Eukaryotic large subunit ribosomal RNA: a 527-nucleotide part of an RNA from Physcomitrium patens. Lineage of the source: Eukaryota > Bryophytina > Bryopsida > Funariidae > Physcomitrium. A search with the family's covariance model found it, with a score of 3372 bits.
[Rfam]
RNA sequence: UAGAACAAUGUAGGUAAGGGAAGUCGGCAAAACAGAUCCGUAACUUCGGGAAAAGGAUUGGCUCUGAGGGUUGGGCCUAGGGGUCUGUGCCUUGACCCCGUAGGCUGUCGGAGGUCUGCCCGAGCUGCUCUCGCGGCGAGGGCGGACCCCCGCGUGCCGACCGGGCGACGGACACAGAAUGAGGUCUGGGGGGUGGGUGACUGCCCCCCUGCCUCGCUUUUCCCUAGGCAGUGAACAACCGACUCAGAACUGGUACGGACAAGGGGAAUCCGACUGUUUAAUUAAAACAAAGCAUUGCGAUGGUCCCCACGGAUGUUGACGCAAUGUGAUUUCUGCCCAGUGCUCUGAAUGUCAAAGUGAAGAAAUUCAACCAAGCGCGGGUAAACGGCGGGAGUAACUAUGACUCUCUUAAGGUAGCCAAAUGCCUCGUCAUCUAAUUAGUGACGCGCAUGAAUGGAUUAACGAGAUUCCCACUGUCCCUAUCUACUAUCUAGCGAAACCACAGCCAAGGGAACGGGCUUGGAAAA
Dot-bracket structure: ((((.....(((((((.(((..............(((((....(....).....)))))((.(((((((((((.((((((((((((.((.(.....(((((.(((...(((.(((((((((..(((((....)))))..))))))))).)))...))).).)))).....).)).)))..........................................)))))))))......)))))..)))))).))(...).......(((((((((..(((.........)))..((((((((...((((....)))).....))))))))...(((.(((..((((((.(..(((.....((((....)))).....))))))))..)))))((((((.......))))))(...)...............(((((.......)))))..........)))....)).)))))))....))).)))))))..))))............(((((........)))))....